[Rfam]
RNA sequence: UAGACUUUUGGGCAAACCGGUUGAAAAGCCGGGACGCAAAGGCAUGGGUCGUCGAUUUCCACAGCGAAAUACCGAUUGCCAGU
Numbered sequence: 001u002a003g004a005c006u007u008u009u010g011g012g013c014a015a016a017c018c019g020g021u022u023g024a025a026a027a028g029c030c031g032g033g034a035c036g037c038a039a040a041g042g043c044a045u046g047g048g049u050c051g052u053c054g055a056u057u058u059c060c061a062c063a064g065c066g067a068a069a070u071a072c073c074g075a076u077u078g079c080c081a082g083u
Stems, first nucleotide, its partner, number of pairs: 012037002017032006042083002045081003048076003055070004

A member of the RNA family "c-di-GMP-I riboswitch aptamer" from Paenibacillus sp. PvR098, 83 nucleotides long.
The base pairs follow the family's consensus structure, which is taken from published work.
A search with the family's covariance model found it, with a score of 41 bits.